[Rfam]
RNA sequence: CUCUAUGUUGUCCUCAUUGUACAUGCUGUGUGUAUAUUUAUGACGUACACAGCGCAUGCAAUGUGGACGUAAUGGAG
Numbered sequence: 001c002u003c004u005a006u007g008u009u010g011u012c013c014u015c016a017u018u019g020u021a022c023a024u025g026c027u028g029u030g031u032g033u034a035u036a037u038u039u040a041u042g043a044c045g046u047a048c049a050c051a052g053c054g055c056a057u058g059c060a061a062u063g064u065g066g067a068c069g070u071a072a073u074g075g076a077g
Stems, first nucleotide, its partner, number of pairs: 012066002015063007024054001026052006
RNA: mir-460 microRNA precursor family
Organism: Alligator sinensis